About this RNA:
This 130-nucleotide RNA from Drosophila rhopaloa belongs to the Rfam family "Small nucleolar RNA psi18S-1377". Rfam links the family to the GO terms nucleolus and RNA processing. The source organism's lineage runs through Eukaryota, Bilateria, Protostomia, Hexapoda and Sophophora. About the family: psi18S-1377 is a member of the H/ACA class of snoRNA. This family is responsible for guiding the modification of uridines 1377 and 1279 to pseudouridine in Drosophila 18S rRNA. Rfam 15.1 lists 113 matches to the family in 34 species. A search with the family's covariance model found it, with a score of 113 bits.
Nucleotides: 130
Stems, first nucleotide, its partner, number of pairs: 002050006010041002016035005022029001078110005085102004
Number, partner (000 for none) and nucleotide at each position: 001000c002050c003049g004048u005047u006046c007045u008000u009000g010041u011040g012000u013000u014000a015000u016035u017034u018033g019032c020031u021000g022029g023000u024000u025000g026000u027000c028000a029022u030000a031020a032019g033018c034017g035016a036000u037000u038000a039000u040011c041010a042000g043000a044000c045007a046006g047005a048004a049003c050002g051000a052000a053000u054000a055000g056000u057000a058000a059000a060000g061000g062000c063000a064000g065000c066000u067000a068000a069000u070000c071000a072000c073000u074000c075000c076000a077000u078110a079109a080108u081107g082106u083000u084000g085102a086101g087100c088099c089000g090000a091000c092000u093000u094000u095000c096000c097000a098000g099088g100087g101086c102085u103000u104000c105000u106082g107081c108080a109079u110078u111000a112000c113000u114000a115000a116000a117000u118000g119000u120000a121000u122000g123000c124000c125000a126000c127000a128000u129000u130000c